[Rfam]
Nucleotides: 158
Base pairs, nucleotide, nucleotide: 013120014119015118016117017048018047019046020045021044022043027040028039050090052088054087057083058082060080061079063076064075093115094114095113096111097109098108101107133156134155135154136153137152140149141148142147
Number, partner (000 for none) and nucleotide at each position: 001000a002000u003000a004000c005000u006000u007000a008000c009000u010000u011000u012000g013120g014119u015118a016117c017048a018047g019046g020045g021044a022043g023000c024000a025000c026000c027040g028039u029000g030000a031000u032000c033000a034000a035000a036000a037000a038000g039028g040027c041000a042000a043022c044021u045020c046019u047018c048017u049000a050090g051000u052088g053000g054087u055000c056000g057083a058082g059000c060080c061079u062000u063076c064075c065000a066000u067000u068000g069000c070000a071000c072000u073000c074000c075064g076063g077000u078000u079061a080060g081000g082058c083057u084000g085000a086000a087054g088052c089000u090050c091000c092000g093115c094114g095113a096111u097109u098108g099000c100000c101107c102000c103000a104000a105000a106000u107101g108098c109097a110000a111096a112000c113095u114094c115093g116000g117016g118015u119014a120013c121000g122000c123000a124000a125000u126000u127000u128000u129000u130000a131000g132000u133156g134155g135154g136153g137152a138000c139000u140149g141148c142147g143000u144000u145000c146000g147142c148141g149140c150000u151000a152137u153136c154135c155134c156133c157000u158000g

Shown here is a 158-nucleotide RNA sequence from Mytilus edulis, a member of the family "U1 spliceosomal RNA". The source organism's lineage runs through Eukaryota, Metazoa, Protostomia, Spiralia and Mytilus. Rfam classes the family as a spliceosomal small nuclear RNA. Pairs were carried over by alignment from the consensus structure, which is taken from published work. From the family's description: U1 is a small nuclear RNA (snRNA) component of the spliceosome (involved in pre-mRNA splicing). It scores 89 bits against the family's covariance model.